Shown here is a 120-nucleotide RNA sequence from Bisbaumannia pacifica, a member of the family "Manganese Mn2+ riboswitch aptamer (yybP-ykoY)".
This RNA was originally discovered in E. coli during a large scale screen and was named SraF. The family was later found to exist upstream of related families of protein genes in many bacteria, including the the yybP and ykoK genes in B. subtilis. The specific functions of these proteins are unknown, but this structured RNA element may be involved in their genetic regulation as a riboswitch.
Taxonomically the source falls in Bisbaumannia (Bacteria, Pseudomonadota, Gammaproteobacteria, Halomonadaceae).
A search with the family's covariance model found it, with a score of 46 bits.
Its family is annotated with manganese ion binding in the Gene Ontology.
RNA sequence: ACAAGCGUUUUGGGGGAGUAGUCACUUUCCCGCCGCCCCUGGGAGCGGCCCCGGAGAAAGGCCGGCAUCAACAGCUUUGGUCACCCUCGACCAUGGUGCCGGCGGCCACGUCAGUGGCUC
Numbered sequence: 001a002c003a004a005g006c007g008u009u010u011u012g013g014g015g016g017a018g019u020a021g022u023c024a025c026u027u028u029c030c031c032g033c034c035g036c037c038c039c040u041g042g043g044a045g046c047g048g049c050c051c052c053g054g055a056g057a058a059a060g061g062c063c064g065g066c067a068u069c070a071a072c073a074g075c076u077u078u079g080g081u082c083a084c085c086c087u088c089g090a091c092c093a094u095g096g097u098g099c100c101g102g103c104g105g106c107c108a109c110g111u112c113a114g115u116g117g118c119u120c
Base pairs, nucleotide, nucleotide: 026059028058061103062102063101064100065099066098067097068096069095070094078093079092080091081090082089104119105118106117107116108115109114